[Rfam]
Rfam assigns this 46-nucleotide RNA sequence from Methermicoccus shengliensis to the family "eL15-Euryarchaeota ribosomal protein leader".

RNA sequence: CGGGAGGUGUCCCGCCGGGAUGUGGCUCACUGAGCUGAACCAUAAA
Numbered sequence: 001c002g003g004g005a006g007g008u009g010u011c012c013c014g015c016c017g018g019g020a021u022g023u024g025g026c027u028c029a030c031u032g033a034g035c036u037g038a039a040c041c042a043u044a045a046a
Stems, first nucleotide, its partner, number of pairs: 001014005017041002024036005